[Rfam]
RNA sequence: CCUUAGGAGAGUCAUACCAAACUGGAGUAGCUUAUUAUAGCAAAACAGGACUCUAAGAAUAAGGAA
Numbered sequence: 001c002c003u004u005a006g007g008a009g010a011g012u013c014a015u016a017c018c019a020a021a022c023u024g025g026a027g028u029a030g031c032u033u034a035u036u037a038u039a040g041c042a043a044a045a046c047a048g049g050a051c052u053c054u055a056a057g058a059a060u061a062a063g064g065a066a
Stems, first nucleotide, its partner, number of pairs: 001064005009053005022048003030041003
A member of the RNA family "RAGATH-18 RNA", 66 nucleotides long. It is one of the family's seed sequences. It is annotated as a small RNA.